[Rfam]
RNA: Alphaproteobacteria transfer-messenger RNA
RNA sequence: CCCCUUGCACGAUGAUCCGUCCCGUCCUACAUUCAUCCUGUCGGGGCAACCCGAAUAUGGUGAUAAACGCGCAGGUAAUAAGCGGAUUGGACCCGGGGGCGGUACCCGGCGGCUCCACCAAACAUCCCUUGUUGGGGGAACAUGGGGCCGAAAUAGGAUCGACAAACGUCUAAAGCUGUUUGCUUUUACUCGGUGAGCUACCACCGAUAUCGGUGCAAUAUAGUAUAGUUGCCAACAACAACCAUGCUCCGGUCGCAGUCGCAGCGUAAGCUGUCACUAGACCGAUACUUAAGUCCUUACGCCUAGCCGCGUAGGGCGGGGUCCGCAGGCACCUGGCAACAGAAGCCUGCACU
Numbered sequence: 001c002c003c004c005u006u007g008c009a010c011g012a013u014g015a016u017c018c019g020u021c022c023c024g025u026c027c028u029a030c031a032u033u034c035a036u037c038c039u040g041u042c043g044g045g046g047c048a049a050c051c052c053g054a055a056u057a058u059g060g061u062g063a064u065a066a067a068c069g070c071g072c073a074g075g076u077a078a079u080a081a082g083c084g085g086a087u088u089g090g091a092c093c094c095g096g097g098g099g100c101g102g103u104a105c106c107c108g109g110c111g112g113c114u115c116c117a118c119c120a121a122a123c124a125u126c127c128c129u130u131g132u133u134g135g136g137g138g139a140a141c142a143u144g145g146g147g148c149c150g151a152a153a154u155a156g157g158a159u160c161g162a163c164a165a166a167c168g169u170c171u172a173a174a175g176c177u178g179u180u181u182g183c184u185u186u187u188a189c190u191c192g193g194u195g196a197g198c199u200a201c202c203a204c205c206g207a208u209a210u211c212g213g214u215g216c217a218a219u220a221u222a223g224u225a226u227a228g229u230u231g232c233c234a235a236c237a238a239c240a241a242c243c244a245u246g247c248u249c250c251g252g253u254c255g256c257a258g259u260c261g262c263a264g265c266g267u268a269a270g271c272u273g274u275c276a277c278u279a280g281a282c283c284g285a286u287a288c289u290u291a292a293g294u295c296c297u298u299a300c301g302c303c304u305a306g307c308c309g310c311g312u313a314g315g316g317c318g319g320g321g322u323c324c325g326c327a328g329g330c331a332c333c334u335g336g337c338a339a340c341a342g343a344a345g346c347c348u349g350c351a352c353u
Stems, first nucleotide, its partner, number of pairs: 041054004059190005069183002071179004083168002087165003093109005110150007191206004197216002200214003319334004325350006